[Rfam]
RNA sequence: GAAUGACAUGACGAUUAGUUGUUUCCCUAUUGGUUUGAUUGCCAGUAUGAUGGCAAAAGUAUUAGCUCUAUCUGAUCAUUC
Numbered sequence: 001g002a003a004u005g006a007c008a009u010g011a012c013g014a015u016u017a018g019u020u021g022u023u024u025c026c027c028u029a030u031u032g033g034u035u036u037g038a039u040u041g042c043c044a045g046u047a048u049g050a051u052g053g054c055a056a057a058a059g060u061a062u063u064a065g066c067u068c069u070a071u072c073u074g075a076u077c078a079u080u081c
Stems, first nucleotide, its partner, number of pairs: 002080004040055004
The record is an 81-nucleotide sequence from Vigna angularis, which matches "Small nucleolar RNA Z102/R77" in Rfam. Its family is annotated with RNA processing and nucleolus in the Gene Ontology. A search with the family's covariance model found it, with a score of 81 bits. Clan: SNORD44 clan. The source organism's lineage runs through Eukaryota, Streptophytina, Euphyllophyta, Phaseoleae and Vigna angularis. Rfam classes the family as a C/D-box small nucleolar RNA. The literature on the family includes a 2003 paper in Nucleic Acids Res by Chen et al., "The high diversity of snoRNAs in plants: identification and comparative study of 120 snoRNA genes from Oryza sativa". Rfam 15.1 lists 1,346 matches to the family in 224 species.